[Rfam]
RNA sequence: UUAUUAGGUAGAGCAGGCUAUGCAAUGUAAAAUGCAUGAAGCCGGGCCAUAAUGGCAGCAGAUAUGUGAUCUGUGGGACUAUA
Numbered sequence: 001u002u003a004u005u006a007g008g009u010a011g012a013g014c015a016g017g018c019u020a021u022g023c024a025a026u027g028u029a030a031a032a033u034g035c036a037u038g039a040a041g042c043c044g045g046g047c048c049a050u051a052a053u054g055g056c057a058g059c060a061g062a063u064a065u066g067u068g069a070u071c072u073g074u075g076g077g078a079c080u081a082u083a
Base pairs, nucleotide, nucleotide: 008082009081010080011079014077016043017042018041019040020037021036022035023034024033046056047055048054049053058074059073060072061071062070063069